[Rfam]
RNA: Purine riboswitch aptamer
Organism: Lactococcus hircilactis
RNA sequence: AAAAAAUUUAAAUUAAAUACUUAUUUAUACCCAGAAUAUGGCUGGGCGUUUCUACCUCGUCACCGCAAAUACGAGACAAUAAGCACACGAUAACGGUAA
Numbered sequence: 001a002a003a004a005a006a007u008u009u010a011a012a013u014u015a016a017a018u019a020c021u022u023a024u025u026u027a028u029a030c031c032c033a034g035a036a037u038a039u040g041g042c043u044g045g046g047c048g049u050u051u052c053u054a055c056c057u058c059g060u061c062a063c064c065g066c067a068a069a070u071a072c073g074a075g076a077c078a079a080u081a082a083g084c085a086c087a088c089g090a091u092a093a094c095g096g097u098a099a
Base pairs, nucleotide, nucleotide: 018085020083021082022081023080024079025078030046031045032044033043034042056075057074058073059072060071062070